Guanidine-I riboswitch aptamer: a 127-nucleotide RNA sequence from Cyanobacteria bacterium FACHB-502.
RNA sequence: AGGAUUCGCUUCUAGGGUUCCGAUCGGGCUGUAAUUGGCGUGAUGGCUGGUCCAAGAGAAGCAGCUAGCUUGAGCUUCUAGCUUUGAAGCCAGGUUAGUCACACGGCGGGAAAAAAGCCCGGGAGAA
Dot-bracket structure: .......(((((..((...(((((((.(((......))).))))..).)).))....))))).((((((((....................))))))).).(.[...(((.......))).)..]..